[Rfam]
RNA sequence: UGACGAACAUCGAGCCGACCUGAGUCGACCCACAUUGAUCGUCAAUGUCCGAUCGAACCGCGGGAACUACAAGAACCCGCGGCCCGAACACGGGAGAGAACGCUGAGCGUCACCAC
Number, nucleotide and partner (000 for none) at each position: 001u044002g043003a042004c041005g040006a039007a000008c037009a036010u000011c000012g033013a000014g000015c000016c000017g000018a000019c000020c000021u000022g000023a000024g000025u000026c000027g000028a000029c000030c000031c000032a000033c012034a000035u000036u009037g008038a000039u006040c005041g004042u003043c002044a001045a000046u000047g000048u000049c000050c000051g000052a000053u000054c000055g000056a000057a000058c082059c081060g080061c079062g078063g077064g076065a000066a000067c073068u000069a000070c000071a000072a000073g067074a000075a000076c064077c063078c062079g061080c060081g059082g058083c000084c000085c000086g000087a000088a000089c000090a000091c000092g000093g000094g000095a000096g000097a000098g000099a000100a000101c000102g000103c000104u000105g000106a000107g000108c000109g000110u000111c000112a000113c000114c000115a000116c000